[Rfam]
RNA sequence: UUUGUUAGAACCUUUUGAAUGAAGUAGUAGAGCGAUUCAAAAGGUUUCAUUCAAAAGGUUCUUGACA
Numbered sequence: 001u002u003u004g005u006u007a008g009a010a011c012c013u014u015u016u017g018a019a020u021g022a023a024g025u026a027g028u029a030g031a032g033c034g035a036u037u038c039a040a041a042a043g044g045u046u047u048c049a050u051u052c053a054a055a056a057g058g059u060u061c062u063u064g065a066c067a
Stems, first nucleotide, its partner, number of pairs: 005064001007062019
RNA: Plastid-ccsA-ndhD-2 3UTR RNA
Organism: Gossypium lobatum